[Rfam]
RNA sequence: UUAGUAAUAGUAGUCUAUUCAGGGCCUUCCUUAAGACCCGAAGAAUUAAUUUUUGGAGACCCUUUUCUUUGGAUUAGGGUG
Numbered sequence: 001u002u003a004g005u006a007a008u009a010g011u012a013g014u015c016u017a018u019u020c021a022g023g024g025c026c027u028u029c030c031u032u033a034a035g036a037c038c039c040g041a042a043g044a045a046u047u048a049a050u051u052u053u054u055g056g057a058g059a060c061c062c063u064u065u066u067c068u069u070u071g072g073a074u075u076a077g078g079g080u081g
Stems, first nucleotide, its partner, number of pairs: 022039003026035003059080005066073002

Notes: Shown here is an 81-nucleotide RNA from Caenorhabditis latens, a member of the family "SmY spliceosomal RNA". A search with the family's covariance model found it, with a score of 66 bits. Rfam 15.1 lists 408 matches to the family in 67 species. On this family, see Deng et al., Genome Res 2006: "Organization of the Caenorhabditis elegans small non-coding transcriptome: genomic features, biogenesis, and expression". The organism belongs to Caenorhabditis, within Eukaryota. The base pairs follow the family's consensus structure, which is taken from published work.